Rfam assigns this 79-nucleotide RNA from Eptatretus burgeri to the family "mir-9/mir-79 microRNA precursor family". The match comes from Rfam's covariance-model search (73 bits). Rfam 15.1 lists 5,647 matches to the family in 934 species. The literature on the family includes a 2003 paper in Dev Biol by Sempere et al., "Temporal regulation of microRNA expression in Drosophila melanogaster mediated by hormonal signals and broad-Complex gene activity". Gene Ontology terms of the family: RISC complex and miRNA-mediated post-transcriptional gene silencing. The family's consensus secondary structure was predicted with RNAalifold.
RNA sequence: CGGUUACUGUCUUUGGUUAUCUAGCUGUAUGAUUGUACACAAACCUGUCAUAAAGCUAGAUAACCGAAAGUAGUAACAC
Numbered sequence: 001c002g003g004u005u006a007c008u009g010u011c012u013u014u015g016g017u018u019a020u021c022u023a024g025c026u027g028u029a030u031g032a033u034u035g036u037a038c039a040c041a042a043a044c045c046u047g048u049c050a051u052a053a054a055g056c057u058a059g060a061u062a063a064c065c066g067a068a069a070g071u072a073g074u075a076a077c078a079c
Stems, first nucleotide, its partner, number of pairs: 003077003007073004012068015028052006